The record is a 79-nucleotide RNA from Streptococcus himalayensis, which matches "skipping-rope RNA" in Rfam. NCBI's taxonomy places the organism under Bacteria, Bacillati, Bacilli, Lactobacillales, Streptococcus. The match comes from Rfam's covariance-model search (68 bits). The family's RNA type in Rfam is small RNA. Pairs were carried over by alignment from the consensus structure, which is taken from published work.

[Rfam]
RNA sequence: AGUGAAUGAGGGCAGAAAGGUUCCUGCCGCACCUAGUAUAGGUAUCUGAGAUGCUGGAUAUACCGCCCAGCCAUUUGCU
Numbered sequence: 001a002g003u004g005a006a007u008g009a010g011g012g013c014a015g016a017a018a019g020g021u022u023c024c025u026g027c028c029g030c031a032c033c034u035a036g037u038a039u040a041g042g043u044a045u046c047u048g049a050g051a052u053g054c055u056g057g058a059u060a061u062a063c064c065g066c067c068c069a070g071c072c073a074u075u076u077g078c079u
Base pairs, nucleotide, nucleotide: 001079002078003077004076005075006074007073008072011028012027013026014025015024019064020063021062030048031043032042033041034040053071054070055069056068057067